Annotation:
The record is an 83-nucleotide RNA from Limosilactobacillus fermentum, which matches "tRNA" in Rfam. The source organism's lineage runs through Bacteria, Bacillota, Bacilli, Lactobacillaceae and Limosilactobacillus. It scores 60 bits against the family's covariance model.

[Rfam]
RNA sequence: GGAGGAGUAGCGAAGUCUGGUUAAACGCGACGGUCUGUAAAACCGUUCCUCUUGGUUCGGUGGUUCGAAUCCACUCUCCUCCA
Dot-bracket structure: (((((((..(((.............))).(((((.......)))))............(((((.......)))))))))))).
Numbered sequence: 001g002g003a004g005g006a007g008u009a010g011c012g013a014a015g016u017c018u019g020g021u022u023a024a025a026c027g028c029g030a031c032g033g034u035c036u037g038u039a040a041a042a043c044c045g046u047u048c049c050u051c052u053u054g055g056u057u058c059g060g061u062g063g064u065u066c067g068a069a070u071c072c073a074c075u076c077u078c079c080u081c082c083a
Stems, first nucleotide, its partner, number of pairs: 001082007010028003030046005059075005
By type it is a transfer RNA.